[Rfam]
RNA sequence: CGUUUAUCAAGAGUCGGGGGAGAGGGUUGGCUCGCAGAUCCCGACACCAACCUGGCGCAAAAGCGCCAAGGUGGUCCGGCCGACAACGAUGAAGG
Numbered sequence: 001c002g003u004u005u006a007u008c009a010a011g012a013g014u015c016g017g018g019g020g021a022g023a024g025g026g027u028u029g030g031c032u033c034g035c036a037g038a039u040c041c042c043g044a045c046a047c048c049a050a051c052c053u054g055g056c057g058c059a060a061a062a063g064c065g066c067c068a069a070g071g072u073g074g075u076c077c078g079g080c081c082g083a084c085a086a087c088g089a090u091g092a093a094g095g
Stems, first nucleotide, its partner, number of pairs: 001095001003093006013045001015043004022033003027083004046075004051071002054067004079087001